[Rfam]
RNA sequence: AUUCCUGUCGUGUAUCCUCGAUUAAUGCAGCCUCAAAUGCU
Numbered sequence: 001a002u003u004c005c006u007g008u009c010g011u012g013u014a015u016c017c018u019c020g021a022u023u024a025a026u027g028c029a030g031c032c033u034c035a036a037a038u039g040c041u
Base pairs, nucleotide, nucleotide: 007022008021009020010019029041030040031039